[Rfam]
RNA sequence: CCUGUAAAUAUCUGUAAGUCGCUUUGGAUAAAAGUGUCUACUAAAUGCAAUGUA
Numbered sequence: 001c002c003u004g005u006a007a008a009u010a011u012c013u014g015u016a017a018g019u020c021g022c023u024u025u026g027g028a029u030a031a032a033a034g035u036g037u038c039u040a041c042u043a044a045a046u047g048c049a050a051u052g053u054a
Stems, first nucleotide, its partner, number of pairs: 013043001014041003020036006
The family of this 54-nucleotide RNA from Collichthys lucidus is "UnaL2 LINE 3' element". The family has 30 seed sequences and 493,311 matches in Rfam 15.1. On this family, see Baba et al., RNA 2004: "Solution structure of an RNA stem-loop derived from the 3' conserved region of eel LINE UnaL2". The eel long interspersed element (LINE) UnaL2 and its partner short interspersed element (SINE) share a conserved 3' tail containing a stem-loop that is critical for their retrotransposition. Presumably, the first step of retrotransposition is the recognition of their 3' tails by UnaL2-encoded reverse transcriptase. The solution structure of a 17-nucleotide RNA derived from the 3' tail of UnaL2 was determined by NMR.